Shown here is a 167-nucleotide RNA from Thermoactinomyces daqus, a member of the family "SAM riboswitch aptamer (S box leader)". Lineage of the source: Bacteria > Bacillati > Bacillota > Bacilli > Thermoactinomyces. From the family's description: The SAM riboswitch is found upstream of a number of genes which code for proteins involved in methionine or cysteine biosynthesis in Gram-positive bacteria. A search with the family's covariance model found it, with a score of 67 bits. Gene Ontology term of the family: regulation of gene expression.
[Rfam]
RNA sequence: CUCUUAUCAAGAGCAGGUGGAGGGAUUUGGCCCGAUGAAGCCCAGCAACCGACCGUAAUGCCAUCGUGAGAUGGGGCACCAGCACGCAGUCUGGGGCCGCGGGAAACCGCGCAAGGCACGGUGCUAAUUCCAGCGAAACGCCCUUACGCGUUUUUGCAAGAUGAGAG
Numbered sequence: 001c002u003c004u005u006a007u008c009a010a011g012a013g014c015a016g017g018u019g020g021a022g023g024g025a026u027u028u029g030g031c032c033c034g035a036u037g038a039a040g041c042c043c044a045g046c047a048a049c050c051g052a053c054c055g056u057a058a059u060g061c062c063a064u065c066g067u068g069a070g071a072u073g074g075g076g077c078a079c080c081a082g083c084a085c086g087c088a089g090u091c092u093g094g095g096g097c098c099g100c101g102g103g104a105a106a107c108c109g110c111g112c113a114a115g116g117c118a119c120g121g122u123g124c125u126a127a128u129u130c131c132a133g134c135g136a137a138a139c140g141c142c143c144u145u146a147c148g149c150g151u152u153u154u155u156g157c158a159a160g161a162u163g164a165g166a167g
Stems, first nucleotide, its partner, number of pairs: 001167008013043001016042003022033003027133004044125004049121002051117001053115001129159001134156005